[Rfam]
The family of this 119-nucleotide RNA sequence from Aquariibacter albus is "ALIL pseudoknot". For this family Rfam cites "Apical loop-internal loop RNA pseudoknots: a new type of stimulator of -1 translational frameshifting in bacteria" (Mazauric et al., J Biol Chem, 2008). Rfam links the family to the GO term positive regulation of translational frameshifting. The organism belongs to Aquariibacter, within Bacteria. It is annotated as a cis-regulatory element.

RNA sequence: CGCCUUCUUCGCCCAGGCGGAGCUCAACCGCCGGCUGAAGUGAUGCGGGCGCUCAUAUGGGCCCGGACCGACACGCCCACGGGGUCGAGCCGAUCCGCCGCGGGCUGCAGAUCGCCACC
Numbered sequence: 001c002g003c004c005u006u007c008u009u010c011g012c013c014c015a016g017g018c019g020g021a022g023c024u025c026a027a028c029c030g031c032c033g034g035c036u037g038a039a040g041u042g043a044u045g046c047g048g049g050c051g052c053u054c055a056u057a058u059g060g061g062c063c064c065g066g067a068c069c070g071a072c073a074c075g076c077c078c079a080c081g082g083g084g085u086c087g088a089g090c091c092g093a094u095c096c097g098c099c100g101c102g103g104g105c106u107g108c109a110g111a112u113c114g115c116c117a118c119c
Stems, first nucleotide, its partner, number of pairs: 016032005081119002083116002091114002094111002097108002100105001
Dot-bracket structure: ...............(((((.......)))))................................................((((......((.((.((.(....).)).)).)))).))